This 65-nucleotide RNA belongs to the Rfam family "GP20-b RNA". The family's RNA type in Rfam is cis-regulatory element.
[Rfam]
RNA sequence: GGUCAGUCGAUCAGACCUAAAACAGUCAAUUCACGGGACGGCGGUUACAGUCCUAAAACAACCUA
Numbered sequence: 001g002g003u004c005a006g007u008c009g010a011u012c013a014g015a016c017c018u019a020a021a022a023c024a025g026u027c028a029a030u031u032c033a034c035g036g037g038a039c040g041g042c043g044g045u046u047a048c049a050g051u052c053c054u055a056a057a058a059c060a061a062c063c064u065a
Base pairs, nucleotide, nucleotide: 001017002016003015004014009027010026011025036053037052038051039050